[Rfam]
RNA sequence: AGGUAGUUAUACGACUGACGGAAGUGGAAUCAACCACAUGAAGUAUAAUCAUUUAAAGAGCCGACCGUCUGGGCUGAUAGA
Numbered sequence: 001a002g003g004u005a006g007u008u009a010u011a012c013g014a015c016u017g018a019c020g021g022a023a024g025u026g027g028a029a030u031c032a033a034c035c036a037c038a039u040g041a042a043g044u045a046u047a048a049u050c051a052u053u054u055a056a057a058g059a060g061c062c063g064a065c066c067g068u069c070u071g072g073g074c075u076g077a078u079a080g081a
Stems, first nucleotide, its partner, number of pairs: 003052002006049007015040001017069005024037004059075004
The family of this 81-nucleotide RNA sequence from Eggerthia catenaformis is "ZMP/ZTP riboswitch aptamer (pfl RNA motif)".
Rfam 15.1 lists 3,295 matches to the family in 2,545 species.
It scores 58 bits against the family's covariance model.
Gene Ontology terms of the family: regulation of purine nucleotide biosynthetic process and one-carbon metabolic process.